[Rfam]
RNA sequence: CUGCUAUCCGCUAACCGGGAAGCCCGUGUCGCGGAAGGUUUUUUCCUGCAUCGUGUCGAGUGAAGCACUCGUAAAGGUGAAGCG
Numbered sequence: 001c002u003g004c005u006a007u008c009c010g011c012u013a014a015c016c017g018g019g020a021a022g023c024c025c026g027u028g029u030c031g032c033g034g035a036a037g038g039u040u041u042u043u044u045c046c047u048g049c050a051u052c053g054u055g056u057c058g059a060g061u062g063a064a065g066c067a068c069u070c071g072u073a074a075a076g077g078u079g080a081a082g083c084g
Base pairs, nucleotide, nucleotide: 002084003083004082007035008034009033010032011031016026017025018024019023037046038045049079050078051077052076057071058070059069060068061067062066
RNA: SucA RNA motif